RNA sequence: AAUGCAUGACUCCACAACCUCAGGACUCGCAGAAUUAAUGGAGUGCUGUCCUGAGGUUGUGGAGUUGUGCGUU
Numbered sequence: 001a002a003u004g005c006a007u008g009a010c011u012c013c014a015c016a017a018c019c020u021c022a023g024g025a026c027u028c029g030c031a032g033a034a035u036u037a038a039u040g041g042a043g044u045g046c047u048g049u050c051c052u053g054a055g056g057u058u059g060u061g062g063a064g065u066u067g068u069g070c071g072u073u
Stems, first nucleotide, its partner, number of pairs: 002072005010064003015059006022052005029046003
RNA: mir-676 microRNA precursor family